[Rfam]
The record is a 56-nucleotide RNA from Allobosea sp. LC85, which matches "sul1 RNA" in Rfam.
The family's RNA type in Rfam is riboswitch.
RNA sequence: UCAGGACCCGGUGAAACCCCGGGUGGCUCUUCCGGCCGCCAAUCCGCCGGACAACG
Number, nucleotide and partner (000 for none) at each position: 001u000002c000003a000004g000005g000006a024007c023008c022009c021010g020011g019012u000013g000014a000015a000016a000017c000018c000019c011020c010021g009022g008023g007024u006025g000026g000027c000028u000029c000030u000031u051032c050033c049034g048035g047036c046037c000038g000039c000040c000041a000042a000043u000044c000045c000046g036047c035048c034049g033050g032051a031052c000053a000054a000055c000056g000